[Rfam]
RNA sequence: UUAUAAGCAAAUUCGACUUUUUAGGUUCAUUCAAUUAAUGAUGUAUGUGGUCCAUAAUAUGAACCAAAUACAUUCUUAAUUGAAUGAACCUAAAAAGUCAAAUUUGCUUGUAA
Dot-bracket structure: .(((((((((((..((((((((((.(((((((((((((.((((....((((...........))))....)))).))))))))))))).))))))))))..))))))))))).
The record is a 113-nucleotide sequence from Medicago truncatula, which matches "MIR2593 microRNA precursor family" in Rfam.
The family has 7 seed sequences and 1,262 matches in Rfam 15.1.
NCBI's taxonomy places the organism under Eukaryota, Fabales, Papilionoideae, Hologalegina, Medicago.